[Rfam]
RNA sequence: GAGUCUAACGUCUAUGCGAGUGUUUGGGUGCAAAACCCCAGCGCGGAAUGAAAGUAAGAGGUUGGAGCCGCAAGGCGCACAAUCGACCGACCCUGAAGUGCUCGGACGGGUUUGAGUAGGAGCAUAGCUGUUGGGACCCGAAAGAUGGUGAACUAUGCCUGGAUAGGGUGAAGCCAGAGGAAACUCUGGUGGAGGCUCGCAGCGGUUCUGACGUGCAAAUCGAUCGUCGAAUCUGGGUAUAGGGGCGAAAGACUAAUCGAACCAUCUAGUAGCUGGUU
Numbered sequence: 001g002a003g004u005c006u007a008a009c010g011u012c013u014a015u016g017c018g019a020g021u022g023u024u025u026g027g028g029u030g031c032a033a034a035a036c037c038c039c040a041g042c043g044c045g046g047a048a049u050g051a052a053a054g055u056a057a058g059a060g061g062u063u064g065g066a067g068c069c070g071c072a073a074g075g076c077g078c079a080c081a082a083u084c085g086a087c088c089g090a091c092c093c094u095g096a097a098g099u100g101c102u103c104g105g106a107c108g109g110g111u112u113u114g115a116g117u118a119g120g121a122g123c124a125u126a127g128c129u130g131u132u133g134g135g136a137c138c139c140g141a142a143a144g145a146u147g148g149u150g151a152a153c154u155a156u157g158c159c160u161g162g163a164u165a166g167g168g169u170g171a172a173g174c175c176a177g178a179g180g181a182a183a184c185u186c187u188g189g190u191g192g193a194g195g196c197u198c199g200c201a202g203c204g205g206u207u208c209u210g211a212c213g214u215g216c217a218a219a220u221c222g223a224u225c226g227u228c229g230a231a232u233c234u235g236g237g238u239a240u241a242g243g244g245g246c247g248a249a250a251g252a253c254u255a256a257u258c259g260a261a262c263c264a265u266c267u268a269g270u271a272g273c274u275g276g277u278u
Base pairs, nucleotide, nucleotide: 005134006133007132008131009130010129012127013126014125015124016123017122020044021043022042026038027037028036029035048055049054060084061083062082063081064080067076068075069074086117087116088114089113090112091110092109093108098103137276138275140273144266145265146264147263148262149261153242154241155240156239157238158237159236160235161234162233163232164230166198167197168196169195173190174189175188176187177186178185179184202227203226204225205224207223208222210221211220244254245253
A member of the RNA family "Eukaryotic large subunit ribosomal RNA" from Clavispora lusitaniae, 278 nucleotides of a longer RNA.
NCBI's taxonomy places the organism under Eukaryota, Opisthokonta, Dikarya, saccharomyceta, Clavispora lusitaniae.